RNA sequence: GAGAUAUGAUGAGGUUUUUUUUGGUCCGUGUUUCUGAUUUAACCGUGACCGACAAAUUAUUUACCAAACUCUGAUCUC
Numbered sequence: 001g002a003g004a005u006a007u008g009a010u011g012a013g014g015u016u017u018u019u020u021u022u023g024g025u026c027c028g029u030g031u032u033u034c035u036g037a038u039u040u041a042a043c044c045g046u047g048a049c050c051g052a053c054a055a056a057u058u059a060u061u062u063a064c065c066a067a068a069c070u071c072u073g074a075u076c077u078c
Base pairs, nucleotide, nucleotide: 001078002077003076004075
RNA: Small nucleolar RNA SNORD18
Organism: Theobroma cacao